RNA sequence: AGGAUAAAAACUGGGGGGUAUUAGAAGUUAGUUACUUAGAGUGUCAUCGAAAGAUAGAUAAUUUAAGUAAAAAAUGGACAAAACCAACUCUGGAUUAAUAAGCUGAGAUCGUCCACAACUCUCGAGUUGGAUCACAGUAAAAGGUGAA
Numbered sequence: 001a002g003g004a005u006a007a008a009a010a011c012u013g014g015g016g017g018g019u020a021u022u023a024g025a026a027g028u029u030a031g032u033u034a035c036u037u038a039g040a041g042u043g044u045c046a047u048c049g050a051a052a053g054a055u056a057g058a059u060a061a062u063u064u065a066a067g068u069a070a071a072a073a074a075u076g077g078a079c080a081a082a083a084c085c086a087a088c089u090c091u092g093g094a095u096u097a098a099u100a101a102g103c104u105g106a107g108a109u110c111g112u113c114c115a116c117a118a119c120u121c122u123c124g125a126g127u128u129g130g131a132u133c134a135c136a137g138u139a140a141a142a143g144g145u146g147a148a
Stems, first nucleotide, its partner, number of pairs: 011093006017085003027075003032070009043059003046055003102138004107133004116129005
The family of this 148-nucleotide sequence is "IMES-3 RNA motif". It is one of the family's seed sequences. The family's consensus secondary structure is taken from published work.